Overview
This 139-nucleotide sequence from Firmicutes bacterium CAG:646 belongs to the Rfam family "Clostridiales-1 RNA".
RNA sequence: AGAUGCCAGGGUCAAAAGGUCAUAAACCACGUUGUGCUUGCACAUAAGUGGUUUUAUGCCUUUAUGACCCGCCCCAAAUUCGGAUAUCGUGGGGCAGAAUUGUGGGAGUGCGUAGCACGAAACAAUUCGUUAGGCAUCU
Numbered sequence: 001a002g003a004u005g006c007c008a009g010g011g012u013c014a015a016a017a018g019g020u021c022a023u024a025a026a027c028c029a030c031g032u033u034g035u036g037c038u039u040g041c042a043c044a045u046a047a048g049u050g051g052u053u054u055u056a057u058g059c060c061u062u063u064a065u066g067a068c069c070c071g072c073c074c075c076a077a078a079u080u081c082g083g084a085u086a087u088c089g090u091g092g093g094g095c096a097g098a099a100u101u102g103u104g105g106g107a108g109u110g111c112g113u114a115g116c117a118c119g120a121a122a123c124a125a126u127u128c129g130u131u132a133g134g135c136a137u138c139u
Stems, first nucleotide, its partner, number of pairs: 001139007010069004016063004021058005026052005033044004073094003077090001097128007108118004